[Rfam]
RNA sequence: CAGGUCGUAAAAAUGGUUGUGCCGUGUCGAUUUAAGAAAAGUUCAUAUCACAGCCAUUUUGACGAGUUUGA
Numbered sequence: 001c002a003g004g005u006c007g008u009a010a011a012a013a014u015g016g017u018u019g020u021g022c023c024g025u026g027u028c029g030a031u032u033u034a035a036g037a038a039a040a041g042u043u044c045a046u047a048u049c050a051c052a053g054c055c056a057u058u059u060u061g062a063c064g065a066g067u068u069u070g071a
Stems, first nucleotide, its partner, number of pairs: 005065004010060012025047003
Shown here is a 71-nucleotide sequence from Anopheles gambiae, a member of the family "mir-2 microRNA precursor family".
Its family is annotated with miRNA-mediated post-transcriptional gene silencing and RISC complex in the Gene Ontology.
It is one of the family's seed sequences.
Taxonomically the source falls in Anopheles gambiae (Eukaryota, Insecta, Eumetabola, Aparaglossata).
The base pairs follow the family's consensus structure, which was predicted with PFOLD.